Rfam assigns this 95-nucleotide RNA from Brassica rapa to the family "Small nucleolar RNA snoR27". Its Rfam clan is "snR68 clan". A search with the family's covariance model found it, with a score of 66 bits. Rfam classes the family as a C/D-box small nucleolar RNA. Pairs were carried over by alignment from the consensus structure, which was predicted with WAR.
RNA sequence: AACAGAUCGAUGAUGUUAUUAUAAAACUGCGUUAUCUAUCUUAAGAACUCCGAAAUAGGAGUUGCAGAUACUAAACAGAAUCGCUGAGAUCUGAU
Numbered sequence: 001a002a003c004a005g006a007u008c009g010a011u012g013a014u015g016u017u018a019u020u021a022u023a024a025a026a027c028u029g030c031g032u033u034a035u036c037u038a039u040c041u042u043a044a045g046a047a048c049u050c051c052g053a054a055a056u057a058g059g060a061g062u063u064g065c066a067g068a069u070a071c072u073a074a075a076c077a078g079a080a081u082c083g084c085u086g087a088g089a090u091c092u093g094a095u
Stems, first nucleotide, its partner, number of pairs: 001095001003093005